A member of the RNA family "Group II catalytic intron D1-D4-3", 174 nucleotides long. The base pairs follow the family's consensus structure.
[Rfam]
RNA sequence: GUUACCGUAAGGUAAGGUGGGAAGGAAGCCGAAGGCAAAACCUUGGUCUGAGGAACACGAACCACAUAGGAGGCGAAGAAGCUGUGGGCGAGAGGGCGUUGGUACUCGAAACCCAAAUACCAUUCAGACAGCGAUUCGUAGAUGUGGCAGAUAUAUGAGGUGAAGGUCAUGCGU
Numbered sequence: 001g002u003u004a005c006c007g008u009a010a011g012g013u014a015a016g017g018u019g020g021g022a023a024g025g026a027a028g029c030c031g032a033a034g035g036c037a038a039a040a041c042c043u044u045g046g047u048c049u050g051a052g053g054a055a056c057a058c059g060a061a062c063c064a065c066a067u068a069g070g071a072g073g074c075g076a077a078g079a080a081g082c083u084g085u086g087g088g089c090g091a092g093a094g095g096g097c098g099u100u101g102g103u104a105c106u107c108g109a110a111a112c113c114c115a116a117a118u119a120c121c122a123u124u125c126a127g128a129c130a131g132c133g134a135u136u137c138g139u140a141g142a143u144g145u146g147g148c149a150g151a152u153a154u155a156u157g158a159g160g161u162g163a164a165g166g167u168c169a170u171g172c173g174u
Stems, first nucleotide, its partner, number of pairs: 002015005028174002032170001035167002040161006046152005062147006073139003078135001081132005086114003092107003